[Rfam]
U4 spliceosomal RNA: a 141-nucleotide sequence from Piliocolobus tephrosceles. Rfam links the family to the GO terms U4 snRNP and spliceosomal tri-snRNP complex assembly. Rfam 15.1 lists 32,178 matches to the family in 2,547 species. Pairs were carried over by alignment from the consensus structure, which is taken from published work. By type it is a spliceosomal small nuclear RNA.

RNA sequence: AGCUUUCAGCAGUGGCGGUACCAUAGCCAAUGAGGUUUACCUGAGGCAUGAUUAUUGCUAAUUGAAAACUUUUCCCAAUAGCUUGCCAUGACAACGUGAAAUAUAGUUGGCAUCGAGAAUUUUUGAGACUCUCCACAGAGG
Numbered sequence: 001a002g003c004u005u006u007c008a009g010c011a012g013u014g015g016c017g018g019u020a021c022c023a024u025a026g027c028c029a030a031u032g033a034g035g036u037u038u039a040c041c042u043g044a045g046g047c048a049u050g051a052u053u054a055u056u057g058c059u060a061a062u063u064g065a066a067a068a069c070u071u072u073u074c075c076c077a078a079u080a081g082c083u084u085g086c087c088a089u090g091a092c093a094a095c096g097u098g099a100a101a102u103a104u105a106g107u108u109g110g111c112a113u114c115g116a117g118a119a120u121u122u123u124u125g126a127g128a129c130u131c132u133c134c135a136c137a138g139a140g141g
Base pairs, nucleotide, nucleotide: 020052022050023049024048026047027046028045034042035041084117086115088113089112090111092109093108094107095106130141131140132139133138